RNA sequence: UACCCAGUUUCGGGAACCUUGGUACAGGCAGGCCGGGGAUUCCCUCUUUACACCGCGACUCCAGCCAAGGCUGGAACACCGCACAACUGUUUUGGGGACCUUGGUACAGGCAGGCCGGGACUCCCCUUCUUUACACCGAAACACCUGGCCGCAAGCCAAGUGUUCCACCCCGCUUGGGGGGCUCCGGUACAGGCAGGCCGGGGUCCCCUCUUUUAUUGCUCGCGC
Numbered sequence: 001u002a003c004c005c006a007g008u009u010u011c012g013g014g015a016a017c018c019u020u021g022g023u024a025c026a027g028g029c030a031g032g033c034c035g036g037g038g039a040u041u042c043c044c045u046c047u048u049u050a051c052a053c054c055g056c057g058a059c060u061c062c063a064g065c066c067a068a069g070g071c072u073g074g075a076a077c078a079c080c081g082c083a084c085a086a087c088u089g090u091u092u093u094g095g096g097g098a099c100c101u102u103g104g105u106a107c108a109g110g111c112a113g114g115c116c117g118g119g120a121c122u123c124c125c126c127u128u129c130u131u132u133a134c135a136c137c138g139a140a141a142c143a144c145c146u147g148g149c150c151g152c153a154a155g156c157c158a159a160g161u162g163u164u165c166c167a168c169c170c171c172g173c174u175u176g177g178g179g180g181g182c183u184c185c186g187g188u189a190c191a192g193g194c195a196g197g198c199c200g201g202g203g204u205c206c207c208c209u210c211u212u213u214u215a216u217u218g219c220u221c222g223c224g225c
Stems, first nucleotide, its partner, number of pairs: 012044005017038007055082003060074002064071002094126005100119006140164004146158004177209005183202006
Rfam assigns this 225-nucleotide RNA sequence from Pseudomonas rhizosphaerae to the family "Nitrogen regulated small RNA". The organism belongs to Pseudomonas, within Bacteria. A reference for the family is Wenner et al. (2014), "NrsZ: a novel, processed, nitrogen-dependent, small non-coding RNA that regulates Pseudomonas aeruginosa PAO1 virulence", Environ Microbiol. The base pairs follow the family's consensus structure. Found in the opportunistic pathogen Pseudomonas aeruginosa PAO1. Its transcription is induced during nitrogen limitation by the NtrB/C two-component system (an important regulator of nitrogen assimilation and swarming motility) together with the alternative sigma factor RpoN (a global regulator involved in nitrogen metabolism). By activating rhlA (a gene essential for rhamnolipids synthesis) it positively regulates the production of rhamnolipid surfactants needed for swarming motility.